[Rfam]
Shown here is a 95-nucleotide sequence from Nicotiana tabacum, a member of the family "Antisense RNA which regulates isiA expression".
A reference for the family is Duhring et al. (2006), "An internal antisense RNA regulates expression of the photosynthesis gene isiA", Proc Natl Acad Sci U S A.
The family has 308 seed sequences and 3,397 matches in Rfam 15.1.
The base pairs follow the family's consensus structure, which was predicted with PFOLD.

RNA sequence: CAACUGAAAGAGCCUUGAAUACUAGAAUAAAAACACCUAGACCUAACAAGAUUAAGUGAUACCUAAAAUUGUGGUCAUUUUAUUUGAUCUUUCCA
Numbered sequence: 001c002a003a004c005u006g007a008a009a010g011a012g013c014c015u016u017g018a019a020u021a022c023u024a025g026a027a028u029a030a031a032a033a034c035a036c037c038u039a040g041a042c043c044u045a046a047c048a049a050g051a052u053u054a055a056g057u058g059a060u061a062c063c064u065a066a067a068a069u070u071g072u073g074g075u076c077a078u079u080u081u082a083u084u085u086g087a088u089c090u091u092u093c094c095a
Base pairs, nucleotide, nucleotide: 055092056091058089059088060087063086065084066083